[Rfam]
RNA: Archaeal large subunit ribosomal RNA, nucleotides 2076 to 2657
RNA sequence: CCCCCAAGGGGAAGCGAAGACCCUAUAGAGCUUUACUGCAGGCUGUCGCUGGGACACGGUCGCUAAUGUGCAGCAUAGGUAGGAGCCGCUACACAGGUGCGUGCGCCAGCACGUCGCCGAGGCAUCAUUGAAAUACUACCCGUUAGUGACUGUGACCCUCACUCCGGGAGGAAGACACCGGUAGCCAGGCAGUUUGACUGGGGCGGUACACGCUCGAAAAGAUAUCGAGCGUGCCCCAAGAUUUCCUCAGCCGCGUCGGAGACGCGGCGAAGAGCGCAAGAGCAAAAGGAAGUCUGACAGUGUCCUCCACAACGAGGGACGCUGACGCGAAAGCGUGGUCUAGCGAACCAACCAGCCUGCUUGAUGCGGGCGGUUGCUGACAGAAAAGCUACCUUAGGGAUAACAGAGUCGUCACCGGCAAGAGCACAUAUCGACCCGGUGGCUUGCUACCUCGAUGUCGGUUCCCUCCAUCCUGCCCGUGCAGAAGCGGGCAAGGGUGAGGUUGUUCGCCUAUUAAAGGAGGUCGUGAGCUGGGUUUAGACCGUCGUGAGACAGGUCGGCUGCUAUCUAUUGGGGGUGCUA
Numbered sequence: 001c002c003c004c005c006a007a008g009g010g011g012a013a014g015c016g017a018a019g020a021c022c023c024u025a026u027a028g029a030g031c032u033u034u035a036c037u038g039c040a041g042g043c044u045g046u047c048g049c050u051g052g053g054a055c056a057c058g059g060u061c062g063c064u065a066a067u068g069u070g071c072a073g074c075a076u077a078g079g080u081a082g083g084a085g086c087c088g089c090u091a092c093a094c095a096g097g098u099g100c101g102u103g104c105g106c107c108a109g110c111a112c113g114u115c116g117c118c119g120a121g122g123c124a125u126c127a128u129u130g131a132a133a134u135a136c137u138a139c140c141c142g143u144u145a146g147u148g149a150c151u152g153u154g155a156c157c158c159u160c161a162c163u164c165c166g167g168g169a170g171g172a173a174g175a176c177a178c179c180g181g182u183a184g185c186c187a188g189g190c191a192g193u194u195u196g197a198c199u200g201g202g203g204c205g206g207u208a209c210a211c212g213c214u215c216g217a218a219a220a221g222a223u224a225u226c227g228a229g230c231g232u233g234c235c236c237c238a239a240g241a242u243u244u245c246c247u248c249a250g251c252c253g254c255g256u257c258g259g260a261g262a263c264g265c266g267g268c269g270a271a272g273a274g275c276g277c278a279a280g281a282g283c284a285a286a287a288g289g290a291a292g293u294c295u296g297a298c299a300g301u302g303u304c305c306u307c308c309a310c311a312a313c314g315a316g317g318g319a320c321g322c323u324g325a326c327g328c329g330a331a332a333g334c335g336u337g338g339u340c341u342a343g344c345g346a347a348c349c350a351a352c353c354a355g356c357c358u359g360c361u362u363g364a365u366g367c368g369g370g371c372g373g374u375u376g377c378u379g380a381c382a383g384a385a386a387a388g389c390u391a392c393c394u395u396a397g398g399g400a401u402a403a404c405a406g407a408g409u410c411g412u413c414a415c416c417g418g419c420a421a422g423a424g425c426a427c428a429u430a431u432c433g434a435c436c437c438g439g440u441g442g443c444u445u446g447c448u449a450c451c452u453c454g455a456u457g458u459c460g461g462u463u464c465c466c467u468c469c470a471u472c473c474u475g476c477c478c479g480u481g482c483a484g485a486a487g488c489g490g491g492c493a494a495g496g497g498u499g500a501g502g503u504u505g506u507u508c509g510c511c512u513a514u515u516a517a518a519g520g521a522g523g524u525c526g527u528g529a530g531c532u533g534g535g536u537u538u539a540g541a542c543c544g545u546c547g548u549g550a551g552a553c554a555g556g557u558c559g560g561c562u563g564c565u566a567u568c569u570a571u572u573g574g575g576g577g578u579g580c581u582a
Stems, first nucleotide, its partner, number of pairs: 001577007010569003014564002022398004027394002029390005035193004042185007051158003055154014078140005085123003100113005163172003196209001197207003210232006235338002241293006247273002250268006274283002298324009326335001328333001349376005355371005407448003411445001412442007422432002459534001460532004464526001465523005472497002476491005500512004540558004544553003